[Rfam]
RNA: Actinobacteria sRNA Ms_AS-8
RNA sequence: CUUGAUCAGACCUACGUGAACUUCAGAUCAUCCUCGGGAAGGUGCGCCCACUUUCAGGCCGCCCUCACCAAGGGC
Dot-bracket structure: ..(((((((............))..))))).......(((((((....)))))))....................